[Rfam]
RNA sequence: CACCUCUUUAAAUGGCAAUCCCGUGAGGUUGCAAAGAGGUACUUGCUUCCCGUCUUUCGAUGGAAGGAGUAUGCCUCUUUGCGCCUCUCGCAAAGAGGUUUUUUAGU
Number, nucleotide and partner (000 for none) at each position: 001c000002a000003c039004c038005u037006c036007u035008u034009u033010a000011a000012a000013u000014g000015g032016c031017a030018a029019u028020c027021c000022c000023g000024u000025g000026a000027g020028g019029u018030u017031g016032c015033a009034a008035a007036g006037a005038g004039g003040u000041a000042c000043u000044u000045g000046c067047u066048u065049c000050c063051c062052g061053u060054c059055u000056u000057u000058c000059g054060a053061u052062g051063g050064a000065a048066g047067g046068a000069g000070u000071a101072u000073g099074c098075c097076u096077c095078u094079u093080u092081g091082c090083g089084c000085c000086u000087c000088u000089c083090g082091c081092a080093a079094a078095g077096a076097g075098g074099u073100u000101u071102u000103u000104u000105a000106g000107u000
RNA: PyrR binding site
Organism: Brevibacillus borstelensis